[Rfam]
RNA sequence: GAAAUUGUCGUCUUCUGCCGAUAACAGGGCGUUGAUGAAAUUGGGCGGGAUUUCGGCGAAGCGGAUCGGGGUGCGGCGCAUCUCGCCGAAUUCGGCGAUCAGCUUGCCGUCGCUGCUGUAGACGCGCAGCGGGAUCUGAAGCUGGAUACUCCGCAGGGCUUCGACGGAGGGCAGGUUGGGGCUCAGAUAGAGGAAGGCGCCACUCAGGCCGAGCAACAGUGCGCAGAAGACUGCUACAAGAGACCACCACAGAAAUUUCAGCAGGCGUAUCAAGGCUUUUGGAUUUCCAGAAAA
Number, nucleotide and partner (000 for none) at each position: 001g000002a000003a000004a000005u000006u000007g000008u000009c000010g172011u171012c170013u169014u168015c167016u166017g165018c000019c163020g162021a161022u000023a000024a000025c045026a000027g000028g042029g041030c000031g000032u000033u000034g000035a000036u000037g000038a000039a000040a000041u029042u028043g000044g000045g025046c000047g084048g083049g082050a081051u080052u000053u000054c078055g077056g000057c075058g074059a000060a000061g000062c069063g000064g000065a000066u000067c000068g000069g062070g000071g000072u000073g000074c058075g057076g000077c055078g054079c000080a051081u050082c049083u048084c047085g000086c095087c094088g093089a000090a000091u000092u000093c088094g087095g086096c000097g000098a000099u000100c000101a160102g159103c158104u157105u155106g154107c153108c000109g147110u146111c145112g000113c000114u000115g142116c141117u140118g000119u138120a137121g136122a135123c133124g000125c131126g130127c000128a000129g000130c126131g125132g000133g123134a000135u122136c121137u120138g119139a000140a117141g116142c115143u000144g000145g111146a110147u109148a000149c000150u000151c000152c000153g107154c106155a105156g000157g104158g103159c102160u101161u021162c020163g019164a000165c017166g016167g015168a014169g013170g012171g011172c010173a000174g000175g000176u290177u289178g288179g287180g286181g285182c000183u283184c282185a000186g279187a278188u000189a000190g000191a000192g000193g000194a000195a000196g000197g268198c267199g266200c265201c264202a000203c261204u260205c000206a258207g257208g000209c000210c000211g000212a000213g237214c000215a000216a000217c233218a232219g231220u000221g000222c229223g000224c000225a000226g000227a000228a000229g222230a000231c219232u218233g217234c000235u000236a000237c213238a000239a000240g000241a000242g000243a000244c000245c252246a000247c000248c000249a000250c000251a000252g245253a000254a000255a000256u000257u207258u206259c000260a204261g203262c000263a000264g201265g200266c199267g198268u197269a000270u000271c000272a000273a000274g000275g000276c000277u000278u187279u186280u000281g000282g184283a183284u000285u181286u180287c179288c178289a177290g176291a000292a000293a000294a000
Source information
Rfam assigns this 294-nucleotide RNA sequence from Pseudomonas sp. v388 to the family "anti ponA RNA". By type it is an antisense RNA. The literature on the family includes a 2014 paper in BMC Genomics by Gomez-Lozano et al., "Expression of antisense small RNAs in response to stress in Pseudomonas aeruginosa". Rfam links the family to the GO term response to antibiotic. Rfam describes the family as follows. Transcribed antisense to the penicillin-binding protein 1A gene called ponA. It was identified by RNAseq and the expression was validated by 5' and 3' RACE experiments. AsponA expression was up or down regulated under different antibiotic stress. Due to its location it may be able to prevent the transcription or translation of the opposite gene. Study by Wurtzel et al. and Ferrara et al. also detected its expression. NCBI's taxonomy places the organism under Bacteria, Pseudomonadati, Pseudomonadales, Pseudomonadaceae, Pseudomonas.